[Rfam]
RNA sequence: UAUCGGCAAUUAUCGCCGAGUCCGGACCAAGGCCCGUCCCCCGCCUAUCCCGGACAACUGCGGCAGCCUCAUCCCCCUCUCCGGGCUGCCGCAACGUUUGAGUAAGGCCGCCGUGGUUCCCCCUCCACCACGGCGGCACUUU
Dot-bracket structure: ....................(((((.....(((.........)))....)))))....((((((((((...............))))))))))..............((((((((((.........))))))))))......